[Rfam]
Shown here is a 66-nucleotide sequence from Streptococcus suis, a member of the family "Streptococcus sRNA Spd-sr37".

RNA sequence: AAUUAUCAUGAUGGUCAAAGCUCAUGGGAAUUGUAGGCUUUUUUGUCCUGCAAUUUUCGAGAGUUU
Numbered sequence: 001a002a003u004u005a006u007c008a009u010g011a012u013g014g015u016c017a018a019a020g021c022u023c024a025u026g027g028g029a030a031u032u033g034u035a036g037g038c039u040u041u042u043u044u045g046u047c048c049u050g051c052a053a054u055u056u057u058c059g060a061g062a063g064u065u066u
Stems, first nucleotide, its partner, number of pairs: 018066006032052006